[Rfam]
RNA sequence: GGCCCAAAUUUGAAGUAGAGUAGAUUAGAAGGAUCAUCUGACCCUACUGAACUAAACUACUUUGAGUUUGGGCCU
Numbered sequence: 001g002g003c004c005c006a007a008a009u010u011u012g013a014a015g016u017a018g019a020g021u022a023g024a025u026u027a028g029a030a031g032g033a034u035c036a037u038c039u040g041a042c043c044c045u046a047c048u049g050a051a052c053u054a055a056a057c058u059a060c061u062u063u064g065a066g067u068u069u070g071g072g073c074c075u
Stems, first nucleotide, its partner, number of pairs: 001074009011064008021054003025050004030045001032043001034041002